[Rfam]
RNA sequence: GCCAAAUGAUGAUCUCUAGAUAUGGUGAGCACUCUGUGCGAAGAUGACCAUAUAUCUAUCACCCAUGACUGAUGGCA
Dot-bracket structure: ((((........................((((...)))).................................)))).